RNA sequence: CAAAAUACGCCAGCCGGUGGAUAACUCGGCUUGGGGGCCGAAGAAGGGCGUGGCAAGCUGCGAAAAGCCCCGGGUAGCCGCAAGCAGGCGUUGAACCGGGGAUGCCCGAAUGGGAUUUCCCGACAUCCCGCGCUUCGGCGUGGGAUGUCGCUCCACUGCCUUGAGCUGUGGAGCGGGAACCGGCCGAACGGAAGCAUCCAAGUAGGCCGAGGAAAAGAAAUCAAAACGAGACUCCCCUAGUAACGGCGAGUGAACGGGGACCAGGCCAAACCGAACCCGUGUGGGAAACCAUGCGGGGAUGUGGAGUGUGGGCCAGCCGCCCUCCUGUGCCCAGCGACCCGAAGCGACCUGGAAGGGUCCGCCAUAGAGGGUGACAGCCCCGUAGGGGAAGCUGGGAGUGGAGAUGGGCUGGUUCCCGAGUACCGCACCUCGGAUAUGGUGCGGGAAGGCAGGAGCCACUGGCUUCUAAGCCUAAGUACCUCCCAAGACCGAUAGCGCAACAGUACCGUGAGGGAAAGUUGAAAACUACCCCGAGAGGGGGUGAAAAGCGGUUGAAACCGGCUGGUAACGGACGA
Number, nucleotide and partner (000 for none) at each position: 001c000002a000003a000004a000005a000006u000007a000008c000009g566010c565011c564012a563013g562014c561015c560016g559017g558018u000019g000020g000021a000022u000023a552024a519025c518026u000027c000028g490029g489030c487031u486032u485033g484034g483035g482036g480037g479038c000039c000040g000041a000042a000043g000044a000045a000046g107047g106048g105049c062050g061051u060052g000053g000054c000055a000056a000057g000058c000059u000060g051061c050062g049063a000064a000065a000066a000067g000068c101069c100070c099071c098072g097073g096074g000075u000076a000077g089078c088079c087080g000081c000082a000083a000084g000085c000086a000087g079088g078089c077090g000091u000092u000093g000094a000095a000096c073097c072098g071099g070100g069101g068102a000103u000104g000105c048106c047107c046108g000109a000110a000111u000112g121113g120114g119115a000116u000117u000118u000119c114120c113121c112122g000123a000124c000125a000126u000127c000128c000129c000130g000131c000132g000133c000134u000135u000136c000137g000138g000139c000140g000141u000142g000143g000144g000145a000146u000147g000148u000149c000150g000151c173152u172153c171154c170155a169156c000157u000158g000159c000160c000161u000162u000163g000164a000165g000166c000167u000168g000169u155170g154171g153172a152173g151174c000175g000176g000177g000178a000179a000180c211181c209182g208183g207184c206185c205186g000187a000188a000189c000190g000191g198192a197193a000194g000195c000196a000197u192198c191199c000200a000201a000202g000203u000204a000205g185206g184207c183208c182209g181210a000211g180212g000213a000214a000215a000216a000217g000218a000219a000220a000221u229222c228223a000224a000225a000226a000227c000228g222229a221230g000231a000232c000233u260234c259235c258236c257237c256238u000239a000240g000241u000242a000243a251244c250245g000246g000247c000248g000249a000250g244251u243252g000253a000254a000255c000256g237257g236258g235259g234260a233261c000262c000263a473264g472265g471266c470267c000268a000269a000270a000271c304272c303273g302274a000275a000276c000277c000278c000279g000280u000281g292282u291283g290284g289285g000286a000287a000288a000289c284290c283291a282292u281293g000294c000295g000296g000297g000298g000299a000300u000301g000302u273303g272304g271305a000306g000307u000308g000309u000310g000311g000312g000313c000314c411315a410316g409317c408318c000319g000320c000321c000322c403323u402324c401325c400326u000327g000328u000329g000330c000331c000332c000333a000334g000335c000336g000337a000338c387339c386340c385341g000342a000343a000344g360345c000346g359347a358348c357349c356350u000351g000352g000353a000354a000355g000356g349357g348358u347359c346360c344361g000362c000363c367364a000365u000366a000367g363368a000369g381370g380371g379372u000373g000374a000375c000376a000377g000378c000379c371380c370381c369382g000383u000384a000385g340386g339387g338388g000389a000390a000391g000392c000393u000394g000395g000396g000397a000398g000399u000400g325401g324402a323403g322404a000405u000406g000407g000408g317409c316410u315411g314412g000413u000414u000415c000416c000417c000418g000419a000420g000421u000422a000423c444424c443425g442426c441427a440428c439429c438430u000431c000432g000433g000434a000435u000436a000437u000438g429439g428440u427441g426442c425443g424444g423445g000446a000447a000448g000449g000450c000451a467452g466453g465454a464455g463456c000457c000458a000459c000460u000461g000462g000463c455464u454465u453466c452467u451468a000469a000470g266471c265472c264473u263474a000475a000476g000477u000478a000479c037480c036481u000482c035483c034484c033485a032486a031487g030488a000489c029490c028491g000492a000493u000494a000495g000496c000497g000498c000499a000500a000501c000502a000503g000504u000505a000506c513507c512508g000509u000510g000511a000512g507513g506514g000515a000516a000517a000518g025519u024520u000521g000522a000523a000524a000525a000526c000527u000528a000529c000530c000531c000532c000533g000534a000535g000536a000537g000538g000539g000540g000541g000542u000543g000544a000545a000546a000547a000548g000549c000550g000551g000552u023553u000554g000555a000556a000557a000558c017559c016560g015561g014562c013563u012564g011565g010566u009567a000568a000569c000570g000571g000572a000573c000574g000575a000